[Rfam]
Shown here is an 81-nucleotide RNA sequence from Fischerella thermalis, a member of the family "Photosynthesis regulatory RNA1". The base pairs follow the family's consensus structure, which was predicted with CMfinder. Formerly known as Syr1 discovered in Synechocystis sp PCC 6803, is a regulatory factor controlling photosynthetic functions. PsrR1 interacts with the ribosome binding regions of several photosynthesis-related mRNAs. In particular, psaL mRNA is processed by RNase E only in the presence of PsrR1. Lineage of the source: Bacteria > Cyanobacteriota > Cyanophyceae > Hapalosiphonaceae > Fischerella thermalis. The family has 13 seed sequences and 92 matches in Rfam 15.1.

RNA sequence: AUUAACUUUUUUAAAUAUCAAUAUCUCCCAUCGACAUUUGGAUUCCUCAUGGUCGCCUCGGUGUUUUGUACCGAGGCUUUU
Numbered sequence: 001a002u003u004a005a006c007u008u009u010u011u012u013a014a015a016u017a018u019c020a021a022u023a024u025c026u027c028c029c030a031u032c033g034a035c036a037u038u039u040g041g042a043u044u045c046c047u048c049a050u051g052g053u054c055g056c057c058u059c060g061g062u063g064u065u066u067u068g069u070a071c072c073g074a075g076g077c078u079u080u081u
Stems, first nucleotide, its partner, number of pairs: 055077008